[Rfam]
RNA: Purine riboswitch aptamer
RNA sequence: AUAAUUUUAUAGGUAAUUCGUCGUAUAAUCUUGAGAAUAGGGCUCUAGAGUUUCUACUGACCACCGUAAAUGGUCUGGCUACGAAGAAGAAUAAUUACUAU
Numbered sequence: 001a002u003a004a005u006u007u008u009a010u011a012g013g014u015a016a017u018u019c020g021u022c023g024u025a026u027a028a029u030c031u032u033g034a035g036a037a038u039a040g041g042g043c044u045c046u047a048g049a050g051u052u053u054c055u056a057c058u059g060a061c062c063a064c065c066g067u068a069a070a071u072g073g074u075c076u077g078g079c080u081a082c083g084a085a086g087a088a089g090a091a092u093a094a095u096u097a098c099u100a101u
Stems, first nucleotide, its partner, number of pairs: 018087002021084005029049003033045003057077001059075005